[Rfam]
RNA sequence: UUGUCCUGUGCCUUUUUCUGCUACCCUGUGCCCAGUCUUAACAGGGUAGUCUGGCAGGACACAUAGCAAUUUACCUCUCAGUUUAGGAGGGCUGUCCUAAGAAUAGGGCUGGCUCUUAAAGGCACGAGAGGACAAU
Numbered sequence: 001u002u003g004u005c006c007u008g009u010g011c012c013u014u015u016u017u018c019u020g021c022u023a024c025c026c027u028g029u030g031c032c033c034a035g036u037c038u039u040a041a042c043a044g045g046g047u048a049g050u051c052u053g054g055c056a057g058g059a060c061a062c063a064u065a066g067c068a069a070u071u072u073a074c075c076u077c078u079c080a081g082u083u084u085a086g087g088a089g090g091g092c093u094g095u096c097c098u099a100a101g102a103a104u105a106g107g108g109c110u111g112g113c114u115c116u117u118a119a120a121g122g123c124a125c126g127a128g129a130g131g132a133c134a135a136u
Stems, first nucleotide, its partner, number of pairs: 002061007011053001020050003024046006074131006081123004087117007094109006

Record summary: The family of this 136-nucleotide sequence from Rattus norvegicus is "Small Cajal body specific RNA 11". The base pairs follow the family's consensus structure, which was predicted with RNAalifold. scaRNAs are a specific class of small nuclear RNAs which localise to the Cajal bodies and guide the modification of RNA polymerase II transcribed spliceosomal RNAs U1, U2, U4, U5 and U12. ACA57 belongs to the H/ACA box class of guide RNAs as it has the predicted hairpin-hinge-hairpin-tail structure, conserved H/ACA-box motifs and is found associated with GAR1. ACA57 is predicted to guide the pseudouridylation of the U5 spliceosomal RNA at position U43. Rfam's curators put it in the seed alignment. NCBI's taxonomy places the organism under Eukaryota, Euarchontoglires, Myomorpha, Muroidea, Rattus.